[Rfam]
The family of this 141-nucleotide RNA sequence from Carlito syrichta is "U4 spliceosomal RNA".
It is annotated as a spliceosomal small nuclear RNA.
On this family, see Zwieb, Nucleic Acids Res 1997: "The uRNA database".
It scores 90 bits against the family's covariance model.
Pairs were carried over by alignment from the consensus structure, which is taken from published work.
RNA sequence: AACUUUGCUCAGUGGCAGUAUCAUAGCCAAUGAGGUUUAUCUGAAGCGUGAUUAUUGCUAAUUACAAACUUUUCCCAAUACUCUGCCAUGGCAACUUGCAGUAUUGUUGGCACUAGCAAUUUUUGACAGUCUCUACAGAGC
Numbered sequence: 001a002a003c004u005u006u007g008c009u010c011a012g013u014g015g016c017a018g019u020a021u022c023a024u025a026g027c028c029a030a031u032g033a034g035g036u037u038u039a040u041c042u043g044a045a046g047c048g049u050g051a052u053u054a055u056u057g058c059u060a061a062u063u064a065c066a067a068a069c070u071u072u073u074c075c076c077a078a079u080a081c082u083c084u085g086c087c088a089u090g091g092c093a094a095c096u097u098g099c100a101g102u103a104u105u106g107u108u109g110g111c112a113c114u115a116g117c118a119a120u121u122u123u124u125g126a127c128a129g130u131c132u133c134u135a136c137a138g139a140g141c
Base pairs, nucleotide, nucleotide: 020052021051022050023049024048026047027046034042035041085117086116089112090111092109093108094107095106131140132139133138